Group II catalytic intron D1-D4-3: a 174-nucleotide sequence from Mesobacillus zeae. Rfam links the family to the GO term Group II intron splicing. The pairing is the family consensus, mapped onto this sequence. Group II introns are found in rRNA, tRNA and mRNA of organelles in fungi, plants and protists, and also in mRNA in bacteria.

RNA sequence: UCCAUGGCGACGUGGAAUCUGAAGGAAGCAAGCGGCAAACCUCCUGUCUGAGGAACACGAAUUUCAUAUAAGGCUAGGGGUCAAUGGAUGAGUCUGCGCAACAAGACAAAGUCCUUACUGCCAAAGGUGACGCAGAGUAAAUGAAGCAGAUGGAUGGAGGGAAAGACUGCAUCC
Number, nucleotide and partner (000 for none) at each position: 001u016002c015003c014004a013005u012006g011007g000008c000009g000010a000011c006012g005013u004014g003015g002016a001017a000018u000019c000020u000021g000022a000023a000024g000025g000026a000027a000028g174029c000030a172031a000032g170033c000034g000035g000036c165037a000038a000039a000040c160041c159042u158043c157044c156045u000046g151047u150048c149049u148050g147051a000052g000053g000054a000055a000056c000057a000058c000059g000060a000061a000062u146063u145064u144065c143066a142067u141068a000069u000070a000071a000072g000073g138074c137075u136076a000077g000078g133079g000080g131081u130082c129083a128084a000085u000086g114087g113088a112089u111090g000091a000092g107093u106094c105095u104096g000097c000098g000099c000100a000101a000102c000103a000104a095105g094106a093107c092108a000109a000110a000111g089112u088113c087114c086115u000116u000117a000118c000119u000120g000121c000122c000123a000124a000125a000126g000127g000128u083129g082130a081131c080132g000133c078134a000135g000136a075137g074138u073139a000140a000141a067142u066143g065144a064145a063146g062147c050148a049149g048150a047151u046152g000153g000154a000155u000156g044157g043158a042159g041160g040161g000162a000163a000164a000165g036166a000167c000168u000169g000170c032171a000172u030173c000174c028